[Rfam]
RNA sequence: UGUCGUUACGCUUGAACUUUGUUUUUCCUGUGAAUUAUACUAGGUGAGCAAAGAUUCAGGUGUGUCGACUG
Numbered sequence: 001u002g003u004c005g006u007u008a009c010g011c012u013u014g015a016a017c018u019u020u021g022u023u024u025u026u027c028c029u030g031u032g033a034a035u036u037a038u039a040c041u042a043g044g045u046g047a048g049c050a051a052a053g054a055u056u057c058a059g060g061u062g063u064g065u066c067g068a069c070u071g
Base pairs, nucleotide, nucleotide: 002069003068004067005066007064009062010061011060012059013058014057015056017053018052019051020050022048023047024046027044028043029042
RNA: mir-87 microRNA precursor family